[Rfam]
RNA sequence: ACCCCGAAUUGCUCUGCAAUGGGAUGGGAUCCGAAGCCCUCCGAGGGAUAAUACAGGCUCUCCCAUCCAACUCCUAUCCCGACACGUCCUCGUCGUGCAGAGUGGUAACAUGUGCCUCCAUAUAUCCUAGAUUGGGUACACGGGCUAGAUCCAACCUCUUGGGCGGAUGGUGGCAUAUGGCGAACUGGGUGGGU
Numbered sequence: 001a002c003c004c005c006g007a008a009u010u011g012c013u014c015u016g017c018a019a020u021g022g023g024a025u026g027g028g029a030u031c032c033g034a035a036g037c038c039c040u041c042c043g044a045g046g047g048a049u050a051a052u053a054c055a056g057g058c059u060c061u062c063c064c065a066u067c068c069a070a071c072u073c074c075u076a077u078c079c080c081g082a083c084a085c086g087u088c089c090u091c092g093u094c095g096u097g098c099a100g101a102g103u104g105g106u107a108a109c110a111u112g113u114g115c116c117u118c119c120a121u122a123u124a125u126c127c128u129a130g131a132u133u134g135g136g137u138a139c140a141c142g143g144g145c146u147a148g149a150u151c152c153a154a155c156c157u158c159u160u161g162g163g164c165g166g167a168u169g170g171u172g173g174c175a176u177a178u179g180g181c182g183a184a185c186u187g188g189g190u191g192g193g194u
Stems, first nucleotide, its partner, number of pairs: 011103007022068008031057002073193003078189001080188001082186001084096003088105002109179008118170002124168004132154006156163002
A member of the RNA family "drz-agam-2-2 ribozyme" from Anopheles gambiae, 194 nucleotides long. For this family Rfam cites "Widespread occurrence of self-cleaving ribozymes" (Webb et al., Science, 2009). The family's consensus secondary structure is taken from published work. Lineage of the source: Eukaryota > Bilateria > Hexapoda > Pterygota > Anopheles gambiae.